[Rfam]
Nucleotides: 105
Stems, first nucleotide, its partner, number of pairs: 006093001008091003012057003017031005038052005062087004068081004
Number, partner (000 for none) and nucleotide at each position: 001000u002000a003000u004000a005000u006093a007000u008091c009090a010089u011000a012057c013056g014055g015000g016000a017031g018030c019029u020028u021027g022000u023000a024000g025000g026000a027021c028020a029019g030018g031017c032000u033000g034000a035000g036000a037000g038052g039051a040050a041049g042048g043000u044000g045000u046000g047000a048042c049041c050040u051039u052038c053000g054000a055014c056013c057012g058000g059000g060000a061000a062087c063086c064085u065084g066000a067000u068081u069080u070079g071078g072000a073000u074000a075000a076000u077000g078071c079070c080069a081068a082000c083000g084065u085064a086063g087062g088000a089010a090009u091008g092000c093006u094000u095000g096000a097000u098000a099000c100000a101000u102000u103000u104000a105000u
The record is a 105-nucleotide sequence from Roseburia sp. CAG:380, which matches "TPP riboswitch aptamer (THI element)" in Rfam. Taxonomically the source falls in Roseburia (Bacteria, Bacillati, Clostridia, Lachnospiraceae). The match comes from Rfam's covariance-model search (62 bits).